Notes: A. fumigatus sRNA Afu_254: a 151-nucleotide sequence from Penicillium egyptiacum.
RNA sequence: AUUCAAAGCAAACACUACUACUCAAGCUUCUUCUUCAAGGUUCUUUACCUACCACAUCUAUAUUCAUCAUGUCUCCCUGCACCUGCAACUGCUGCUCCGGCGAGUGCAACUCCUGCUCUUGCUCCAGCUGCAAGGUAUGUCAUAGCUUUCU
Numbered sequence: 001a002u003u004c005a006a007a008g009c010a011a012a013c014a015c016u017a018c019u020a021c022u023c024a025a026g027c028u029u030c031u032u033c034u035u036c037a038a039g040g041u042u043c044u045u046u047a048c049c050u051a052c053c054a055c056a057u058c059u060a061u062a063u064u065c066a067u068c069a070u071g072u073c074u075c076c077c078u079g080c081a082c083c084u085g086c087a088a089c090u091g092c093u094g095c096u097c098c099g100g101c102g103a104g105u106g107c108a109a110c111u112c113c114u115g116c117u118c119u120u121g122c123u124c125c126a127g128c129u130g131c132a133a134g135g136u137a138u139g140u141c142a143u144a145g146c147u148u149u150c151u
Stems, first nucleotide, its partner, number of pairs: 078102003085095003106131003115122002
The base pairs follow the family's consensus structure, which was predicted with WAR. It is annotated as a small RNA. The organism belongs to Penicillium, within Eukaryota. A reference for the family is Jochl et al. (2008), "Small ncRNA transcriptome analysis from Aspergillus fumigatus suggests a novel mechanism for regulation of protein synthesis", Nucleic Acids Res.